[Rfam]
RNA: Xanthine riboswitch aptamer (NMT1 RNA)
RNA sequence: UUGCAGAGUAGAAGCGUUCAGCGCGUGCCCGUUCAUGCACCCGCCCGGAAAUUGCUCUUGCC
Numbered sequence: 001u002u003g004c005a006g007a008g009u010a011g012a013a014g015c016g017u018u019c020a021g022c023g024c025g026u027g028c029c030c031g032u033u034c035a036u037g038c039a040c041c042c043g044c045c046c047g048g049a050a051a052u053u054g055c056u057c058u059u060g061c062c
Base pairs, nucleotide, nucleotide: 005058006057007056008055009054010053015047018049019048021044022043023042025040026039027038